The record is a 118-nucleotide RNA from Thermosyntropha lipolytica, which matches "FMN riboswitch aptamer (RFN element)" in Rfam.

RNA sequence: ACCUUUCUUCGGGGACGGGUGGAAUUCCCUACCGGCGGUAAAGCCCGCGAGCCUUUCAGGGCAUGACCUGGUGCAAUUCCAGGGCCGACAGUGAAAGUCUGGAUGGGAGAAGAAAGGA
Dot-bracket structure: ..((((((((......(((.......))).[[((((((....[[))))....(.......).....(((((.......)))))]])).(((.....]]))).......))))))))..
Numbered sequence: 001a002c003c004u005u006u007c008u009u010c011g012g013g014g015a016c017g018g019g020u021g022g023a024a025u026u027c028c029c030u031a032c033c034g035g036c037g038g039u040a041a042a043g044c045c046c047g048c049g050a051g052c053c054u055u056u057c058a059g060g061g062c063a064u065g066a067c068c069u070g071g072u073g074c075a076a077u078u079c080c081a082g083g084g085c086c087g088a089c090a091g092u093g094a095a096a097g098u099c100u101g102g103a104u105g106g107g108a109g110a111a112g113a114a115a116g117g118a
Stems, first nucleotide, its partner, number of pairs: 003116008017029003031098002033087002035048004043085002053061001067083005089101003

It scores 115 bits against the family's covariance model.